RNA: Bacterial RNase P class A
RNA sequence: UAAGUAGGCCGGAUGAUCGCGAAUAGCAAUGCCGAAAGGUGCUAUUCGAGGAAAGUCCGGGCUCCAUAGGGCAGGGUGCUGGGUAACGCCCAGUGGAGGUGACUCCAAGGAAAGUGCCACAGAAAUAUACCGCCUUAUAGAGACUGAGUUCUUUAUAAGGUAAGGGUGAAAAGGUGCGGUAAGAGCGCACCAGCAUUCAGGCGACUGAAUGGCUAGGUAAACCCCACCUGGAGCAAGACCAAAUAGGGAGACGUUAAGGGUGGCCCGCCCGUGUCUCCGGGUAUGGUCGCUAGAGGUGUCUGGUAACAGGCAUCCUAGAUAGAUGAUCAUCCAAGACAGAACCCGGCUUAUAGGCCUACUUACCUU
Numbered sequence: 001u002a003a004g005u006a007g008g009c010c011g012g013a014u015g016a017u018c019g020c021g022a023a024u025a026g027c028a029a030u031g032c033c034g035a036a037a038g039g040u041g042c043u044a045u046u047c048g049a050g051g052a053a054a055g056u057c058c059g060g061g062c063u064c065c066a067u068a069g070g071g072c073a074g075g076g077u078g079c080u081g082g083g084u085a086a087c088g089c090c091c092a093g094u095g096g097a098g099g100u101g102a103c104u105c106c107a108a109g110g111a112a113a114g115u116g117c118c119a120c121a122g123a124a125a126u127a128u129a130c131c132g133c134c135u136u137a138u139a140g141a142g143a144c145u146g147a148g149u150u151c152u153u154u155a156u157a158a159g160g161u162a163a164g165g166g167u168g169a170a171a172a173g174g175u176g177c178g179g180u181a182a183g184a185g186c187g188c189a190c191c192a193g194c195a196u197u198c199a200g201g202c203g204a205c206u207g208a209a210u211g212g213c214u215a216g217g218u219a220a221a222c223c224c225c226a227c228c229u230g231g232a233g234c235a236a237g238a239c240c241a242a243a244u245a246g247g248g249a250g251a252c253g254u255u256a257a258g259g260g261u262g263g264c265c266c267g268c269c270c271g272u273g274u275c276u277c278c279g280g281g282u283a284u285g286g287u288c289g290c291u292a293g294a295g296g297u298g299u300c301u302g303g304u305a306a307c308a309g310g311c312a313u314c315c316u317a318g319a320u321a322g323a324u325g326a327u328c329a330u331c332c333a334a335g336a337c338a339g340a341a342c343c344c345g346g347c348u349u350a351u352a353g354g355c356c357u358a359c360u361u362a363c364c365u366u
Base pairs, nucleotide, nucleotide: 001362002361003360004359005358006357007356008355009354010353011351012331013330014329015328016327017326018325020048021047022046023045024044025043026042027041028040053349054348055347057346058345059344060343061342062233063232064231065230069266070265071264072263074229075228076227077226078225079093080092081091082090083089094108095106096105097104098103109224110223114222115221116218117217118216130165131164132161133160134159135158136157137156138155139154140153141152142151143150173191174190175189176188177187178186193213194211195210196209197208198207199206200205237288238287239286240285247278248277249276250275251274252273258270259269260268261267295314296313297312298311299310300309301308302307